[Rfam]
Nucleotides: 091
Stems, first nucleotide, its partner, number of pairs: 001091002004088008013066003023059003027056004041078002043074005
Number, partner (000 for none) and nucleotide at each position: 001091u002090c003000a004088u005087c006086g007085a008084u009083c010082g011081g012000a013066a014065g015064c016000u017000c018000u019000g020000a021000c022000a023059c024058g025057u026000u027056c028055u029054c030053c031000u032000c033000a034000a035000g036000c037000c038000c039000a040000c041078g042077g043074u044073c045072g046071c047070c048000g049000g050000a051000u052000g053030g054029g055028a056027g057025g058024c059023g060000c061000c062000g063000a064015g065014c066013u067000a068000c069000u070047g071046g072045c073044g074043g075000g076000a077042c078041c079000g080000g081011c082010c083009g084008a085007u086006c087005g088004g089000c090002g091001a
Shown here is a 91-nucleotide sequence, a member of the family "c-di-GMP-II-GAG riboswitch aptamer". The family is grouped with related families in Rfam's "c-di-GMP_II riboswitch clan". Rfam's curators put it in the seed alignment. The literature on the family includes a 2017 paper in Proc Natl Acad Sci U S A by Weinberg et al., "Bioinformatic analysis of riboswitch structures uncovers variant classes with altered ligand specificity".